[Rfam]
RNA sequence: GCGGGAAGGAACAUGGUCGCGCCCUUACGGGUGAGGAAAGUCCGGGCACCGCAGGGCAGGAUGCCAGCUAACGGCUGGGCGGCGAGCAGACGGGCAGAGGCGGGCGUUCCUCUGGACACGUGCGAAGCCGACGGACAGUGCCACAGAAACCAGACCGCCGCGCCCACAAUGCCCAUUCCCGGUGGGGGGCGCGGUCAGGGUGAAACGGUGCGGUAAGAGCGCACCAGGCGGCCAAGAAAUUGGCGGCGCUGGUAAACCCCAUUCGGUGCAAGACCCGACAGUGGAGGAGGGCGGCCCGCCCGUUGAUUCCCAGGAUGGUCGCUUGAGGUGUGUGGCGACACACAUCCCAGAGAGAUGAUCAUGACCCCUCCGCGAGGUGGGGGACAGAACCCGGCUUACUCCCUUCCCGUACCA
Numbered sequence: 001g002c003g004g005g006a007a008g009g010a011a012c013a014u015g016g017u018c019g020c021g022c023c024c025u026u027a028c029g030g031g032u033g034a035g036g037a038a039a040g041u042c043c044g045g046g047c048a049c050c051g052c053a054g055g056g057c058a059g060g061a062u063g064c065c066a067g068c069u070a071a072c073g074g075c076u077g078g079g080c081g082g083c084g085a086g087c088a089g090a091c092g093g094g095c096a097g098a099g100g101c102g103g104g105c106g107u108u109c110c111u112c113u114g115g116a117c118a119c120g121u122g123c124g125a126a127g128c129c130g131a132c133g134g135a136c137a138g139u140g141c142c143a144c145a146g147a148a149a150c151c152a153g154a155c156c157g158c159c160g161c162g163c164c165c166a167c168a169a170u171g172c173c174c175a176u177u178c179c180c181g182g183u184g185g186g187g188g189g190c191g192c193g194g195u196c197a198g199g200g201u202g203a204a205a206c207g208g209u210g211c212g213g214u215a216a217g218a219g220c221g222c223a224c225c226a227g228g229c230g231g232c233c234a235a236g237a238a239a240u241u242g243g244c245g246g247c248g249c250u251g252g253u254a255a256a257c258c259c260c261a262u263u264c265g266g267u268g269c270a271a272g273a274c275c276c277g278a279c280a281g282u283g284g285a286g287g288a289g290g291g292c293g294g295c296c297c298g299c300c301c302g303u304u305g306a307u308u309c310c311c312a313g314g315a316u317g318g319u320c321g322c323u324u325g326a327g328g329u330g331u332g333u334g335g336c337g338a339c340a341c342a343c344a345u346c347c348c349a350g351a352g353a354g355a356u357g358a359u360c361a362u363g364a365c366c367c368c369u370c371c372g373c374g375a376g377g378u379g380g381g382g383g384a385c386a387g388a389a390c391c392c393g394g395c396u397u398a399c400u401c402c403c404u405u406c407c408c409g410u411a412c413c414a
Stems, first nucleotide, its partner, number of pairs: 001410009012363007020033005038397003042394005047268004054297004059264005064078005079132001080130004133259002138257002140253003155199002157195009207225006227249001228247002231244005272320004283310004289301004327346008